[Rfam]
RNA sequence: CGAACCAAGUAGAAGCACCCGCUUCUCACCUGUGGCGACGCUGAAGCAGUUGGCAGGUCAAUCAUGUUACACAUUUAUUGUGUCUAAGAAGAGCGGGUAGUUAUACUCGCUCUUCUUUUUGCUU
Numbered sequence: 001c002g003a004a005c006c007a008a009g010u011a012g013a014a015g016c017a018c019c020c021g022c023u024u025c026u027c028a029c030c031u032g033u034g035g036c037g038a039c040g041c042u043g044a045a046g047c048a049g050u051u052g053g054c055a056g057g058u059c060a061a062u063c064a065u066g067u068u069a070c071a072c073a074u075u076u077a078u079u080g081u082g083u084c085u086a087a088g089a090a091g092a093g094c095g096g097g098u099a100g101u102u103a104u105a106c107u108c109g110c111u112c113u114u115c116u117u118u119u120u121g122c123u124u
Base pairs, nucleotide, nucleotide: 011026012025013024014023015022016021028058029057030056037051038050039049040047041046092111093110094109095108096107097106098105099104
Dot-bracket structure: ..........((((((....)))))).(((......(((((....)).)))....))).................................((((((((....)))))))).............
About this RNA:
A member of the RNA family "Ribosomal protein L20 leader" from Staphylococcus epidermidis, 124 nucleotides long. It is annotated as a cis-regulatory leader. NCBI's taxonomy places the organism under Bacteria, Bacillota, Bacilli, Staphylococcus, Staphylococcus epidermidis.